[Rfam]
RNA sequence: GGAGCAGCCCAGGCGGUCGCUGGAUUUAAAAAUUCAGAGGAAAGUCCGAACACCACAGGGCAUGGCGCUCCGUAAUUCGGAGUCGCGGCAACGUGAAGGAAAGUGCAACAGAAAGUAAACCGCCUUUAUCAGUGAACAGGGUUUUGAUAAUUGUUCACUGAAAAGGUAAGGGUGAAACGGUGCGGUAAGAGCGCACCAGUUCUUUGGGUGACCAGAGAAGCUUGGUAAACCCCGCCUGGUGCAAAACCAAAUAGAGGAGUGCAAAGAAUUCAGUUUAUACUGUUUUCUUGAAGGGCUGCCCGUCCUUGACUCCCGGGUAGGUUGCAAGAGAUGACAGGUAACUAUCAUCCAUAGAUGAAUGACCGCUGCCGGUGAAAACCGGUACAAAAUUCGGCUUACGGGCUGCUCCAGCC
Numbered sequence: 001g002g003a004g005c006a007g008c009c010c011a012g013g014c015g016g017u018c019g020c021u022g023g024a025u026u027u028a029a030a031a032a033u034u035c036a037g038a039g040g041a042a043a044g045u046c047c048g049a050a051c052a053c054c055a056c057a058g059g060g061c062a063u064g065g066c067g068c069u070c071c072g073u074a075a076u077u078c079g080g081a082g083u084c085g086c087g088g089c090a091a092c093g094u095g096a097a098g099g100a101a102a103g104u105g106c107a108a109c110a111g112a113a114a115g116u117a118a119a120c121c122g123c124c125u126u127u128a129u130c131a132g133u134g135a136a137c138a139g140g141g142u143u144u145u146g147a148u149a150a151u152u153g154u155u156c157a158c159u160g161a162a163a164a165g166g167u168a169a170g171g172g173u174g175a176a177a178c179g180g181u182g183c184g185g186u187a188a189g190a191g192c193g194c195a196c197c198a199g200u201u202c203u204u205u206g207g208g209u210g211a212c213c214a215g216a217g218a219a220g221c222u223u224g225g226u227a228a229a230c231c232c233c234g235c236c237u238g239g240u241g242c243a244a245a246a247c248c249a250a251a252u253a254g255a256g257g258a259g260u261g262c263a264a265a266g267a268a269u270u271c272a273g274u275u276u277a278u279a280c281u282g283u284u285u286u287c288u289u290g291a292a293g294g295g296c297u298g299c300c301c302g303u304c305c306u307u308g309a310c311u312c313c314c315g316g317g318u319a320g321g322u323u324g325c326a327a328g329a330g331a332u333g334a335c336a337g338g339u340a341a342c343u344a345u346c347a348u349c350c351a352u353a354g355a356u357g358a359a360u361g362a363c364c365g366c367u368g369c370c371g372g373u374g375a376a377a378a379c380c381g382g383u384a385c386a387a388a389a390u391u392c393g394g395c396u397u398a399c400g401g402g403c404u405g406c407u408c409c410a411g412c413c
Stems, first nucleotide, its partner, number of pairs: 001409010012367007020037007042397003046394005051241004058301004064236004068082005083097001084095004098232002103230002105226002120171002122167006129161011179197006199221001200219008245323004256313005292306005330349005336343002

The family of this 413-nucleotide RNA sequence from Desulfonema limicola is "Bacterial RNase P class A".
Its family is annotated with ribonuclease P activity, tRNA processing and dimeric ribonuclease P complex in the Gene Ontology.
Lineage of the source: Bacteria > Pseudomonadati > Desulfobacterales > Desulfococcaceae > Desulfonema.
A search with the family's covariance model found it, with a score of 295 bits.
Rfam classes the family as a ribozyme.